Overview
A member of the RNA family "Group II catalytic intron D1-D4-1" from Vibrio cholerae, 94 nucleotides long. The family has 237 seed sequences and 2,508 matches in Rfam 15.1. Taxonomically the source falls in Vibrio (Bacteria, Pseudomonadati, Pseudomonadota, Vibrionaceae). On this family, see Bonen and Vogel, Trends Genet 2001: "The ins and outs of group II introns".

[Rfam]
RNA sequence: CGCAUGACGGGGCAACUCGGCAUGUGAUUAAGCAGAAGUCAGCAGACGGCAUAGUAGCCCAACGCCCAUCGUAAUGGAUGGGAUAGCAUACCCC
Numbered sequence: 001c002g003c004a005u006g007a008c009g010g011g012g013c014a015a016c017u018c019g020g021c022a023u024g025u026g027a028u029u030a031a032g033c034a035g036a037a038g039u040c041a042g043c044a045g046a047c048g049g050c051a052u053a054g055u056a057g058c059c060c061a062a063c064g065c066c067c068a069u070c071g072u073a074a075u076g077g078a079u080g081g082g083a084u085a086g087c088a089u090a091c092c093c094c
Base pairs, nucleotide, nucleotide: 001026002025004023005022006021008019009018010017011016038047039046040045048094049093057087058086066081067080